This 448-nucleotide RNA from a Hyphomonadaceae bacterium belongs to the Rfam family "Alphaproteobacteria transfer-messenger RNA". It scores 217 bits against the family's covariance model.
RNA sequence: GUCCUUCCAACUAGCCGAGUUUGCCCCUAUAUUCGACUCGUUCGGGCUUGCCCGGACUAUGGCGAUAAACGCGCAGAGAUAGGCGGAUCGGACCCGGGUGCGAUGCCCGGCGGCUCCACCAGCCUUCGCUCGCUUCGCGAGCUACGGCUUGGCAAGCCAGCCUUCGCUUCGGCGGUGGACGGCUUGUCUGGGCGAAGCUGCAAAGCAGCGGAGACCGAACCUCAUUUGGGUUCGUGUUGAGGGGCCGAAAUAGGAUCGACGGACGUUGAAGGCUGAUGCUUUUGCUCGGGUGGUCCCGUCACAGGCCAAACAGCAUAGUUGCAAAUGACAACAACGCUGAAGAGUUCGCCCUCGCUGCGUAAGCAGUGCGAGUGAUCUCGACCUAAGUCCUAACGAGUAGCAUCGUUAGGCGGGGCUCCCCGGCGCCCGGCAACAGAAGCCGGGGACU
Numbered sequence: 001g002u003c004c005u006u007c008c009a010a011c012u013a014g015c016c017g018a019g020u021u022u023g024c025c026c027c028u029a030u031a032u033u034c035g036a037c038u039c040g041u042u043c044g045g046g047c048u049u050g051c052c053c054g055g056a057c058u059a060u061g062g063c064g065a066u067a068a069a070c071g072c073g074c075a076g077a078g079a080u081a082g083g084c085g086g087a088u089c090g091g092a093c094c095c096g097g098g099u100g101c102g103a104u105g106c107c108c109g110g111c112g113g114c115u116c117c118a119c120c121a122g123c124c125u126u127c128g129c130u131c132g133c134u135u136c137g138c139g140a141g142c143u144a145c146g147g148c149u150u151g152g153c154a155a156g157c158c159a160g161c162c163u164u165c166g167c168u169u170c171g172g173c174g175g176u177g178g179a180c181g182g183c184u185u186g187u188c189u190g191g192g193c194g195a196a197g198c199u200g201c202a203a204a205g206c207a208g209c210g211g212a213g214a215c216c217g218a219a220c221c222u223c224a225u226u227u228g229g230g231u232u233c234g235u236g237u238u239g240a241g242g243g244g245c246c247g248a249a250a251u252a253g254g255a256u257c258g259a260c261g262g263a264c265g266u267u268g269a270a271g272g273c274u275g276a277u278g279c280u281u282u283u284g285c286u287c288g289g290g291u292g293g294u295c296c297c298g299u300c301a302c303a304g305g306c307c308a309a310a311c312a313g314c315a316u317a318g319u320u321g322c323a324a325a326u327g328a329c330a331a332c333a334a335c336g337c338u339g340a341a342g343a344g345u346u347c348g349c350c351c352u353c354g355c356u357g358c359g360u361a362a363g364c365a366g367u368g369c370g371a372g373u374g375a376u377c378u379c380g381a382c383c384u385a386a387g388u389c390c391u392a393a394c395g396a397g398u399a400g401c402a403u404c405g406u407u408a409g410g411c412g413g414g415g416c417u418c419c420c421c422g423g424c425g426c427c428c429g430g431c432a433a434c435a436g437a438a439g440c441c442g443g444g445g446a447c448u
Stems, first nucleotide, its partner, number of pairs: 040057007061286005071279003074275003084265002088262003094110005111247007287298004291309001293307001413428004419444006
Annotation
NCBI's taxonomy places the organism under Bacteria, Pseudomonadota, Alphaproteobacteria, Hyphomonadales, Hyphomonadaceae. The family's RNA type in Rfam is non-coding RNA gene. On this family, see Laslett et al., Nucleic Acids Res 2002: "BRUCE: a program for the detection of transfer-messenger RNA genes in nucleotide sequences".